[Rfam]
RNA: TPP riboswitch aptamer (THI element)
Organism: Domibacillus iocasae
RNA sequence: UUCAUCCACUGGAGGUGCCUUUUAAAAAGGCUGAGAUCAAAGUGAUUGACUUUGGGAUUCCUGGAACCUGAUCCAGUUCAUACUGGCGUAGGAAAGUGGCGAGACCUUUAU
Numbered sequence: 001u002u003c004a005u006c007c008a009c010u011g012g013a014g015g016u017g018c019c020u021u022u023u024a025a026a027a028a029g030g031c032u033g034a035g036a037u038c039a040a041a042g043u044g045a046u047u048g049a050c051u052u053u054g055g056g057a058u059u060c061c062u063g064g065a066a067c068c069u070g071a072u073c074c075a076g077u078u079c080a081u082a083c084u085g086g087c088g089u090a091g092g093a094a095a096g097u098g099g100c101g102a103g104a105c106c107u108u109u110a111u
Stems, first nucleotide, its partner, number of pairs: 006099005011061004016055001017031005038054005067092004073086004